This 389-nucleotide RNA sequence from Bacillus sp. NRRL B-14911 belongs to the Rfam family "Bacterial RNase P class B". It is annotated as a ribozyme. Taxonomically the source falls in Bacillus (Bacteria, Bacillati, Caryophanales, Bacillaceae). Ribonuclease P (RNase P) is a ubiquitous endoribonuclease, found in archaea, bacteria and eukarya as well as chloroplasts and mitochondria. Its best characterised activity is the generation of mature 5'-ends of tRNAs by cleaving the 5'-leader elements of precursor-tRNAs. Cellular RNase Ps are ribonucleoproteins. RNA from bacterial RNase Ps retains its catalytic activity in the absence of the protein subunit, i.e. it is a ribozyme. Isolated eukaryotic and archaeal RNase P RNA has not been shown to retain its catalytic function, but is still essential for the catalytic activity of the holoenzyme. Although the archaeal and eukaryotic holoenzyme s have a much greater protein content than the bacterial ones, the RNA cores from all the three lineages are homologous -- helices corresponding to P1, P2, P3, P4, and P10/11 are common to all cellular RNase P RNAs. Yet, there is considerable sequence variation, particularly among the eukaryotic RNAs. The family's consensus secondary structure is taken from published work.

[Rfam]
RNA sequence: ACGUUCGGGUAAUCGCUGCGGCAGCUUGCUGCUGCAGAGGAAAGUCCAUGCUCGCACGGACUGAGAUGUCCGUAGUGUUCGUGCCUGGCGAAGUCAUAAGCCAGGGCAGCCGGGCGAUUGCGCGGCUGACGGCAGGGAAAAUGCCUAAGUCCUUCGGGAUAUGGCAUGAAUACCUUGAAAGUGCCACAGUGACGGAGCCUUUCCAGAAAUGGGAAGGGUGGAACGAGGUAAACCCCGCGAGCGAGAAACCCAAAUAAUGGUAGGGGCACUUUCUCUGAGGAAAUGAACAAGGAGAAGGACAGAUUUUAUAUCUGUAGAUAGAUGAUUGCCGCCUUAGUACGAGACUCAGGUCGAUUGCAGUACAAAGGAACAAAACAUGGCUUACAGAA
Numbered sequence: 001a002c003g004u005u006c007g008g009g010u011a012a013u014c015g016c017u018g019c020g021g022c023a024g025c026u027u028g029c030u031g032c033u034g035c036a037g038a039g040g041a042a043a044g045u046c047c048a049u050g051c052u053c054g055c056a057c058g059g060a061c062u063g064a065g066a067u068g069u070c071c072g073u074a075g076u077g078u079u080c081g082u083g084c085c086u087g088g089c090g091a092a093g094u095c096a097u098a099a100g101c102c103a104g105g106g107c108a109g110c111c112g113g114g115c116g117a118u119u120g121c122g123c124g125g126c127u128g129a130c131g132g133c134a135g136g137g138a139a140a141a142u143g144c145c146u147a148a149g150u151c152c153u154u155c156g157g158g159a160u161a162u163g164g165c166a167u168g169a170a171u172a173c174c175u176u177g178a179a180a181g182u183g184c185c186a187c188a189g190u191g192a193c194g195g196a197g198c199c200u201u202u203c204c205a206g207a208a209a210u211g212g213g214a215a216g217g218g219u220g221g222a223a224c225g226a227g228g229u230a231a232a233c234c235c236c237g238c239g240a241g242c243g244a245g246a247a248a249c250c251c252a253a254a255u256a257a258u259g260g261u262a263g264g265g266g267c268a269c270u271u272u273c274u275c276u277g278a279g280g281a282a283a284u285g286a287a288c289a290a291g292g293a294g295a296a297g298g299a300c301a302g303a304u305u306u307u308a309u310a311u312c313u314g315u316a317g318a319u320a321g322a323u324g325a326u327u328g329c330c331g332c333c334u335u336a337g338u339a340c341g342a343g344a345c346u347c348a349g350g351u352c353g354a355u356u357g358c359a360g361u362a363c364a365a366a367g368g369a370a371c372a373a374a375a376c377a378u379g380g381c382u383u384a385c386a387g388a389a
Base pairs, nucleotide, nucleotide: 004389005388006387007385008330009329010328011327012326013325014324016037017036018035019034020033021032042383043382044381046380047379048378049377050376051245052244053243054242055241056073057072058071059070060069061068079240080239081238082237083236084105085104086103087102088101089100106130107128108127109126110125111124112123131235132234134175135174136173142166143165144164145163149160150159151158181233182232183229184228185227198217199216200215201214202213203212204211205210249265250264251263269298270297271296272295273294274293275292299315300314301313302312303311304310332368333367334366335365337363338362339361340360